[Rfam]
RNA sequence: UGGGCGCGCGCGGGAGAGCGCCGGGUUCAUCUUUUAGGUGAGAAAAGCCCGGCCGCCGAAGGAGCAACCACCGGAAUCUCUCAGGCAAAUGGGACCGCGCGAUCGCC
Numbered sequence: 001u002g003g004g005c006g007c008g009c010g011c012g013g014g015a016g017a018g019c020g021c022c023g024g025g026u027u028c029a030u031c032u033u034u035u036a037g038g039u040g041a042g043a044a045a046a047g048c049c050c051g052g053c054c055g056c057c058g059a060a061g062g063a064g065c066a067a068c069c070a071c072c073g074g075a076a077u078c079u080c081u082c083a084g085g086c087a088a089a090u091g092g093g094a095c096c097g098c099g100c101g102a103u104c105g106c107c
Stems, first nucleotide, its partner, number of pairs: 007101007020053008055086003058082002062080003068074002
Shown here is a 107-nucleotide RNA sequence, a member of the family "Glycine riboswitch aptamer". The match comes from Rfam's covariance-model search (58 bits). Clan: Glycine riboswitch clan. Rfam links the family to the GO term glycine biosynthetic process.